[Rfam]
Nucleotides: 161
Stems, first nucleotide, its partner, number of pairs: 003159003006155004016028003030141002032131002034078004073129002081108003112127005133144003
Number, partner (000 for none) and nucleotide at each position: 001000c002000a003159u004158c005157g006155c007154u008153u009152c010000a011000g012000g013000g014000c015000g016028g017027g018026g019000u020000g021000a022000a023000a024000u025000u026018c027017c028016c029000c030141a031140c032131c033130g034078g035077u036076g037075g038000u039000a040000a041000u042000u043000u044000a045000a046000a047000u048000a049000c050000g051000u052000u053000c054000u055000u056000u057000a058000g059000a060000a061000c062000a063000u064000a065000u066000u067000u068000u069000u070000u071000c072000a073129g074128c075037c076036c077035a078034c079000g080000a081108g082107c083106c084000u085000u086000c087000c088000a089000u090000u091000u092000u093000u094000u095000a096000u097000a098000a099000a100000a101000u102000g103000a104000u105000a106083g107082g108081c109000a110000g111000a112127u113126u114125u115124g116123g117000u118000c119000a120000a121000a122000g123116c124115c125114a126113a127112a128074g129073c130033c131032g132000a133144c134143g135142g136000u137000a138000u139000a140031g141030u142135c143134c144133g145000g146000a147000u148000g149000a150000a151000a152009g153008a154007a155006g156000a157005c158004g159003a160000c161000g